RNA sequence: CGUAUAGGAUGUUCGGCUAAUAGUGCAACGUCCUGUUGCAACACCGAACUGAAUUACAUCCUGUAAU
Numbered sequence: 001c002g003u004a005u006a007g008g009a010u011g012u013u014c015g016g017c018u019a020a021u022a023g024u025g026c027a028a029c030g031u032c033c034u035g036u037u038g039c040a041a042c043a044c045c046g047a048a049c050u051g052a053a054u055u056a057c058a059u060c061c062u063g064u065a066a067u
Base pairs, nucleotide, nucleotide: 011049012048013047014046015045016044025039026038027037028036029035053067054066055065056064057063

The family of this 67-nucleotide RNA sequence from Gracilibacillus halotolerans is "Bacillaceae-1 RNA".
The family's RNA type in Rfam is small RNA.
The base pairs follow the family's consensus structure, which is taken from published work.